[Rfam]
RNA: FMN riboswitch aptamer (RFN element)
Organism: Lachnoclostridium sp. An14
RNA sequence: CGGAGUCUUCGAGGGCAGGGUGAAAUUCCCGAUUGGCGGUAAAGUCCGCGAGCAGAGAUGCAGAUUUGGUGCGAUUCCAAAACCAACAGUUAAAGUCUGGAUGAAAGAAGAUGCGU
Numbered sequence: 001c002g003g004a005g006u007c008u009u010c011g012a013g014g015g016c017a018g019g020g021u022g023a024a025a026u027u028c029c030c031g032a033u034u035g036g037c038g039g040u041a042a043a044g045u046c047c048g049c050g051a052g053c054a055g056a057g058a059u060g061c062a063g064a065u066u067u068g069g070u071g072c073g074a075u076u077c078c079a080a081a082a083c084c085a086a087c088a089g090u091u092a093a094a095g096u097c098u099g100g101a102u103g104a105a106a107g108a109a110g111a112u113g114c115g116u
Base pairs, nucleotide, nucleotide: 003114005112006111007110008109009108010107018030019029020028032096033095034085035084036049037048038047039046044083045082052061053060054059065081066080067079068078069077087099088098089097